RNA: Salmonella enterica sRNA STnc40
Organism: Citrobacter portucalensis
RNA sequence: ACAGUGCCACGGCCGUCUGAGCUAAGAAAAUAACUUACUGAAAAGGCGCAGAAUUCUGCGCCUUUUUU
Numbered sequence: 001a002c003a004g005u006g007c008c009a010c011g012g013c014c015g016u017c018u019g020a021g022c023u024a025a026g027a028a029a030a031u032a033a034c035u036u037a038c039u040g041a042a043a044a045g046g047c048g049c050a051g052a053a054u055u056c057u058g059c060g061c062c063u064u065u066u067u068u
Base pairs, nucleotide, nucleotide: 002019003018004017006013007012041066042065043064044063045062046061047060048059049058050057051056